[Rfam]
RNA sequence: UAUCUUAAAUUGAGAAUGUCGCUUGGUUUGUGGUUCCAAGCUAGUCUAAAUAGUUGCCGAGUUCGCAGUCCCUUGAUAGCUCGGAUUAGUGGUGCUGUCUAUGAUGAACGUCCUACGUGCU
Numbered sequence: 001u002a003u004c005u006u007a008a009a010u011u012g013a014g015a016a017u018g019u020c021g022c023u024u025g026g027u028u029u030g031u032g033g034u035u036c037c038a039a040g041c042u043a044g045u046c047u048a049a050a051u052a053g054u055u056g057c058c059g060a061g062u063u064c065g066c067a068g069u070c071c072c073u074u075g076a077u078a079g080c081u082c083g084g085a086u087u088a089g090u091g092g093u094g095c096u097g098u099c100u101a102u103g104a105u106g107a108a109c110g111u112c113c114u115a116c117g118u119g120c121u
Base pairs, nucleotide, nucleotide: 001015003013004012021041022040023039024038025037026036030116031115032114033113044105045104046103047101048100056093057092058091059090061086062085067081068080069079

The family of this 121-nucleotide RNA from Brachionus plicatilis is "RAGATH-11 RNA". The family's RNA type in Rfam is small RNA. The family has 10 seed sequences and 87 matches in Rfam 15.1. A search with the family's covariance model found it, with a score of 86 bits. Pairs were carried over by alignment from the consensus structure, which is taken from published work. Taxonomically the source falls in Brachionus (Eukaryota, Eumetazoa, Protostomia, Pseudotrocha). On this family, see Weinberg et al., Nat Chem Biol 2015: "New classes of self-cleaving ribozymes revealed by comparative genomics analysis".